Shown here is a 70-nucleotide RNA sequence from Myripristis murdjan, a member of the family "mir-216 microRNA precursor family". Its Rfam clan is "mir-216 clan". Its family is annotated with RISC complex and miRNA-mediated post-transcriptional gene silencing in the Gene Ontology. The family's consensus secondary structure was predicted with WAR.

RNA sequence: UUUCAGGUUAAUCUCAGCUGGCAACUGUGAGCUGUGGAGCCUCACGGCGCCGGCCGGGGUUACCCUGAAC
Number, nucleotide and partner (000 for none) at each position: 001u000002u000003u068004c067005a066006g065007g064008u000009u062010a061011a060012u059013c058014u057015c056016a000017g054018c000019u000020g000021g051022c000023a000024a000025c000026u046027g045028u044029g043030a042031g041032c000033u000034g000035u000036g000037g000038a000039g000040c000041c031042u030043c029044a028045c027046g026047g000048c000049g000050c000051c021052g000053g000054c017055c000056g015057g014058g013059g012060u011061u010062a009063c000064c007065c006066u005067g004068a003069a000070c000